[Rfam]
RNA sequence: UCUGACACCCAUCAUAGGAUUAGUUCCCCACCCAGGAGCUACAUUACCAUAUUCAGAAUUC
Numbered sequence: 001u002c003u004g005a006c007a008c009c010c011a012u013c014a015u016a017g018g019a020u021u022a023g024u025u026c027c028c029c030a031c032c033c034a035g036g037a038g039c040u041a042c043a044u045u046a047c048c049a050u051a052u053u054c055a056g057a058a059u060u061c
Base pairs, nucleotide, nucleotide: 017045018044021041022040023039024038025037026036027035